[Rfam]
RNA sequence: AGACACACGGGGUGUUUAGUUUAUGCUGUUUAACCAUAUCAGCGUAGUGGCUAGAACCCACAUUGGACUUCUAUAAGGAGAAAUAUAAAAUG
Numbered sequence: 001a002g003a004c005a006c007a008c009g010g011g012g013u014g015u016u017u018a019g020u021u022u023a024u025g026c027u028g029u030u031u032a033a034c035c036a037u038a039u040c041a042g043c044g045u046a047g048u049g050g051c052u053a054g055a056a057c058c059c060a061c062a063u064u065g066g067a068c069u070u071c072u073a074u075a076a077g078g079a080g081a082a083a084u085a086u087a088a089a090a091u092g
Stems, first nucleotide, its partner, number of pairs: 001017006022046007047061004
About this RNA
The family of this 92-nucleotide RNA sequence is "freshwater-2 RNA". Pairs were carried over by alignment from the consensus structure, which is taken from published work. The sequence is in the family's curated seed alignment. It is annotated as a cis-regulatory element.